[Rfam]
RNA sequence: GGCCAGUCAGAAGGUAGUGAGUUAUCUCAAUUGAUUGUUCACAUCAGUUACAGGUCAAACUCCUUGCUCUACUCUUUUCCCUUUUCUCACUGCUGCACUGGACUAGUCUAAU
Numbered sequence: 001g002g003c004c005a006g007u008c009a010g011a012a013g014g015u016a017g018u019g020a021g022u023u024a025u026c027u028c029a030a031u032u033g034a035u036u037g038u039u040c041a042c043a044u045c046a047g048u049u050a051c052a053g054g055u056c057a058a059a060c061u062c063c064u065u066g067c068u069c070u071a072c073u074c075u076u077u078u079c080c081c082u083u084u085u086c087u088c089a090c091u092g093c094u095g096c097a098c099u100g101g102a103c104u105a106g107u108c109u110a111a112u
Stems, first nucleotide, its partner, number of pairs: 001108003005104004011099001014096002016091006043073001046070002
Source information: Shown here is a 112-nucleotide RNA sequence from Homo sapiens, a member of the family "Y RNA". By type it is a non-coding RNA gene.